Rfam assigns this 79-nucleotide sequence from Leptosomus discolor to the family "Small nucleolar RNA SNORD87". A reference for the family is Gogolevskaya et al. (2002), "U87 RNA, a novel C/D box small nucleolar RNA from mammalian cells", Gene. Gene Ontology terms of the family: RNA processing and nucleolus. The family has 10 seed sequences and 539 matches in Rfam 15.1.

[Rfam]
RNA sequence: GUUGGCACAGUGAUGAUGACUCUUUGCCGUUUACCCAGCUGAAUUUUGUGAUGAGCAAAGUUAUAUCUGAUGUGCCAGC
Numbered sequence: 001g002u003u004g005g006c007a008c009a010g011u012g013a014u015g016a017u018g019a020c021u022c023u024u025u026g027c028c029g030u031u032u033a034c035c036c037a038g039c040u041g042a043a044u045u046u047u048g049u050g051a052u053g054a055g056c057a058a059a060g061u062u063a064u065a066u067c068u069g070a071u072g073u074g075c076c077a078g079c
Stems, first nucleotide, its partner, number of pairs: 001079007